RNA sequence: ACUGUAUAUACGCUUAAUUUCCGGCAUCUCGCCGGGAAGCGGGGGAACCGAUCAAUUGGGGCGAAUCGACGCGUGAUGCCAUUCAAGGCACCGUCAUAGGGUACCAUCUACCCGAGCCCGUCAGCUAACCUCGUCAGCAGUGGAUGGGUCAAUG
Numbered sequence: 001a002c003u004g005u006a007u008a009u010a011c012g013c014u015u016a017a018u019u020u021c022c023g024g025c026a027u028c029u030c031g032c033c034g035g036g037a038a039g040c041g042g043g044g045g046a047a048c049c050g051a052u053c054a055a056u057u058g059g060g061g062c063g064a065a066u067c068g069a070c071g072c073g074u075g076a077u078g079c080c081a082u083u084c085a086a087g088g089c090a091c092c093g094u095c096a097u098a099g100g101g102u103a104c105c106a107u108c109u110a111c112c113c114g115a116g117c118c119c120g121u122c123a124g125c126u127a128a129c130c131u132c133g134u135c136a137g138c139a140g141u142g143g144a145u146g147g148g149u150c151a152a153u154g
Base pairs, nucleotide, nucleotide: 012138013137014136018038019037020036021035022034023033024032025031039134040133041132042131043130044129049058050057059119060118061117068095069094070093099113100112101111102110